[Rfam]
RNA sequence: AAGUGGCCGCAUUAGUGAUUGCAGCGGCAUCCUUUUUUAUGGAAAUAAAAAAGAUACAGCGGAAAGCACGUGCCACU
Numbered sequence: 001a002a003g004u005g006g007c008c009g010c011a012u013u014a015g016u017g018a019u020u021g022c023a024g025c026g027g028c029a030u031c032c033u034u035u036u037u038u039a040u041g042g043a044a045a046u047a048a049a050a051a052a053g054a055u056a057c058a059g060c061g062g063a064a065a066g067c068a069c070g071u072g073c074c075a076c077u
Stems, first nucleotide, its partner, number of pairs: 015069003019065002024060002029055003035050006
This 77-nucleotide RNA from Arenibacter certesii belongs to the Rfam family "Flavo-1 RNA".